[Rfam]
RNA: ybhL leader
Organism: Rhizobium sp. YS-1r
RNA sequence: CAGGCUUGCUGGAGCUCCGCAGCGGCGCCUGGGUCUGUUGAAAAAGGGGGCCCGACACCGUGAAUAAUUCCGGAGCUUAA
Number, nucleotide and partner (000 for none) at each position: 001c000002a000003g000004g000005c000006u000007u000008g000009c000010u000011g000012g078013a077014g076015c075016u074017c073018c072019g071020c000021a000022g000023c060024g059025g058026c000027g000028c000029c000030u054031g053032g052033g051034u000035c047036u000037g000038u000039u000040g000041a000042a000043a000044a000045a000046g000047g035048g000049g000050g000051c033052c032053c031054g030055a000056c000057a000058c025059c024060g023061u000062g000063a000064a000065u000066a000067a000068u000069u000070c000071c019072g018073g017074a016075g015076c014077u013078u012079a000080a000